[Rfam]
RNA: Glutamine-II riboswitch aptamer
Organism: Synechococcus sp. CC9605
RNA sequence: CUGCGUUCACCCUGAACUAGGGCGCAUCUACAACGAGUCAGGGAACGGGGGCUCGUC
Number, nucleotide and partner (000 for none) at each position: 001c000002u000003g000004c047005g046006u045007u044008c043009a000010c022011c021012c020013u019014g018015a000016a000017c000018u014019a013020g012021g011022g010023c000024g000025c000026a000027u000028c000029u000030a000031c000032a000033a056034c055035g054036a053037g052038u050039c049040a000041g000042g000043g008044a007045a006046c005047g004048g000049g039050g038051g000052c037053u036054c035055g034056u033057c000